[Rfam]
RNA sequence: CUGAGGUGAGGUAGUAAGUUGUGUUGUUGGGGAUCAGGAUAGCGCAGCCCUCGAAGGAGAUAACUAUACAACUUACUGCCUUCCCCAU
Numbered sequence: 001c002u003g004a005g006g007u008g009a010g011g012u013a014g015u016a017a018g019u020u021g022u023g024u025u026g027u028u029g030g031g032g033a034u035c036a037g038g039a040u041a042g043c044g045c046a047g048c049c050c051u052c053g054a055a056g057g058a059g060a061u062a063a064c065u066a067u068a069c070a071a072c073u074u075a076c077u078g079c080c081u082u083c084c085c086c087a088u
Stems, first nucleotide, its partner, number of pairs: 002087002005084002008082017026064002030050003052059001